[Rfam]
RNA: Bacterial small subunit ribosomal RNA, nucleotides 931 to 1516
RNA sequence: UGACGGGGGCCCGCACAAGCAGUGGAGCAUGUGGUUUAAUUCGAUGCAACGCGAAGGACCUUACCUGGGUUUGACAUGUAUAUGACCGCGGCAGAAAUGUCGUUUUCCGCAAGGACAUAUACACAGGUGCUGCAUGGCUGUCGUCAGCUCGUGCCGUGAGGUGUUGGGUUAAGUCCCGCAACGAGCGCAACCCUUAUCGUUAGUUGCCAGCACUUAGGGUGGGAACUCUAACGAGACUGCCUGGGUUAACCAGGAGGAAGGCGAGGAUGACGUCAAGUCAGCAUGGCCCUUAUGCCCAGGGCGACACACGUGCUACAAUGGCCAGUACAGAAGGUGGCAAGAUCGCGAGAUGGAGCAAAUCCUCAAAGCUGGCCCCAGUUCGGAUUGUAGUCUGCAACUCGACUACAUGAAGUCGGAAUUGCUAGUAAUGGCGUGUCAGCCAUAACGCCGUGAAUACGUUCCCGGGCCUUGUACACACCGCCCGUCACAUCAUGGGAGUUGGUUUUACCUUAAGUCGUUGACUCAACCCGCAAGGGAGAGAGGCGCCCAAGGUGAGGCUGAUGACUAGGAUGAAGUCGUAACAAGG
Number, nucleotide and partner (000 for none) at each position: 001u475002g474003a472004c471005g470006g000007g469008g468009g467010c466011c465012c464013g463014c000015a459016c458017a000018a000019g422020c421021a420022g419023u418024g316025g000026a314027g313028c312029a311030u310031g309032u308033g307034g305035u304036u000037u000038a000039a000040u055041u054042c053043g052044a000045u000046g000047c000048a000049a000050c000051g000052c043053g042054a041055a040056g000057g000058a000059c000060c000061u000062u000063a000064c300065c299066u298067g297068g296069g295070u294071u000072u000073g000074a000075c000076a000077u123078g122079u000080a120081u119082a118083u117084g116085a000086c000087c000088g103089c102090g101091g100092c099093a098094g000095a000096a000097a000098u093099g092100u091101c090102g089103u088104u000105u000106u115107c114108c113109g000110c000111a000112a000113g108114g107115a106116c084117a083118u082119a081120u080121a000122c078123a077124c000125a000126g289127g288128u000129g287130c286131u285132g284133c000134a000135u283136g282137g278138c277139u276140g274141u000142c272143g271144u000145c000146a000147g186148c185149u184150c183151g182152u181153g162154c161155c160156g000157u000158g000159a000160g155161g154162u153163g000164u000165u178166g177167g176168g175169u000170u000171a000172a000173g000174u000175c168176c167177c166178g165179c000180a000181a152182c151183g150184a149185g148186c147187g000188c000189a000190a000191c000192c266193c265194u264195u263196a000197u234198c233199g232200u231201u230202a229203g228204u000205u000206g000207c223208c222209a000210g000211c221212a220213c219214u000215u000216a000217g000218g000219g213220u212221g211222g208223g207224a000225a000226c000227u000228c203229u202230a201231a200232c199233g198234a197235g000236a000237c257238u256239g000240c254241c253242u252243g251244g250245g000246u000247u000248a000249a000250c244251c243252a242253g241254g240255a000256g238257g237258a000259a000260g000261g000262c000263g195264a194265g193266g192267a000268u000269g000270a000271c143272g142273u000274c140275a000276a139277g138278u137279c000280a000281g000282c136283a135284u132285g131286g130287c129288c127289c126290u000291u000292a000293u000294g070295c069296c068297c067298a066299g065300g064301g000302c000303g000304a035305c034306a000307c033308a032309c031310g030311u029312g028313c027314u026315a000316c024317a000318a000319u000320g374321g373322c372323c371324a370325g369326u368327a000328c000329a000330g000331a000332a363333g362334g361335u000336g000337g356338c355339a000340a000341g000342a351343u350344c349345g000346c000347g000348a000349g344350a343351u342352g000353g000354a000355g338356c337357a000358a000359a000360u000361c334362c333363u332364c000365a000366a000367a000368g326369c325370u324371g323372g322373c321374c320375c000376c000377a000378g000379u000380u000381c412382g000383g000384a000385u000386u407387g406388u405389a404390g403391u402392c401393u000394g000395c000396a000397a000398c000399u000400c000401g392402a391403c390404u389405a388406c387407a386408u000409g000410a000411a000412g381413u000414c000415g000416g000417a000418a023419u022420u021421g020422c019423u000424a000425g000426u000427a000428a451429u450430g449431g448432c447433g446434u445435g000436u000437c000438a000439g000440c000441c000442a000443u000444a000445a434446c433447g432448c431449c430450g429451u428452g000453a000454a000455u000456a000457c000458g016459u015460u000461c000462c000463c013464g012465g011466g010467c009468c008469u007470u005471g004472u003473a000474c002475a001476c000477a000478c585479c000480g582481c000482c000483c578484g577485u000486c000487a000488c572489a571490u570491c569492a000493u567494g566495g565496g000497a000498g562499u561500u560501g559502g558503u557504u556505u555506u554507a553508c552509c551510u000511u000512a000513a000514g547515u000516c545517g544518u543519u542520g000521a000522c540523u539524c538525a000526a000527c536528c535529c000530g000531c000532a000533a000534g000535g528536g527537a000538g524539a523540g522541a000542g519543g518544c517545g516546c000547c514548c000549a000550a000551g509552g508553u507554g506555a505556g504557g503558c502559u501560g500561a499562u498563g000564a000565c495566u494567a493568g000569g491570a490571u489572g488573a000574a000575g000576u000577c484578g483579u000580a000581a000582c480583a000584a000585g478586g000